[Rfam]
RNA sequence: UAUUUUUGCAUCUAGGGUUCCAACUCAGCCUAAAAGCUGAGUGUUCGGUCCAAGAGAUGCAGCCAGCCAAAGUCUAAACACGACCUACUCUGGUUCACGGAGGGAUAAAAGCCCGGGAGAA
Numbered sequence: 001u002a003u004u005u006u007u008g009c010a011u012c013u014a015g016g017g018u019u020c021c022a023a024c025u026c027a028g029c030c031u032a033a034a035a036g037c038u039g040a041g042u043g044u045u046c047g048g049u050c051c052a053a054g055a056g057a058u059g060c061a062g063c064c065a066g067c068c069a070a071a072g073u074c075u076a077a078a079c080a081c082g083a084c085c086u087a088c089u090c091u092g093g094u095u096c097a098c099g100g101a102g103g104g105a106u107a108a109a110a111g112c113c114c115g116g117g118a119g120a121a
Base pairs, nucleotide, nucleotide: 007061008060009059010058011057012056015051016050020048021047022045023042024041025040026039027038028037062094063093064092065091066090096116098119102114103113104112
The record is a 121-nucleotide sequence from Acaryochloris marina, which matches "Guanidine-I riboswitch aptamer" in Rfam. NCBI's taxonomy places the organism under Bacteria, Cyanophyceae, Acaryochloridales, Acaryochloridaceae, Acaryochloris marina. Its family is annotated with regulation of gene expression in the Gene Ontology.